[Rfam]
RNA: Eukaryotic large subunit ribosomal RNA, nucleotides 957 to 1280
Organism: Haemaphysalis longicornis
RNA sequence: GAGUCUAACAUGUGCGCGAGUCAAUGGGUCUCCCGAAACCCAAUGGCGCAAUGAAACGUGAAGGCCCCUAGCGGGCUGCGUUGCGAUCCCGGACCGCACAGGGGUCCGAUAAAGGGCGCAGCAACGGCCCGUCCCAGGCGCUCACACGUCGCCGGGGCGGAGCGAGAGCGCACACGUUGGCACCCGAAAGAUGGUGAACUAUGCCCGGGCAGGACGAGGCCAGAGGAAACUCUGGUGGAGGUCCGAAGCGAUUCUGACGUGCAAAUCGAUCGUCCGAUCCGGGUAUAGGGGCGAAAGACCAAUCGAACCAUCUAGUAGCUGGUU
Dot-bracket structure: ....(((((.(((((((..(((..(((((........)))))..)))...((.....))....................(((((...((.........................))....))))).((((((((...(...........)...))).))).))....))))))).)))))..((.(...((((((...((((((((((((.((((...(((((((....)))))))....))))...((((.((.((........))))))))..).))))))))))).((.......))......))))))......).))..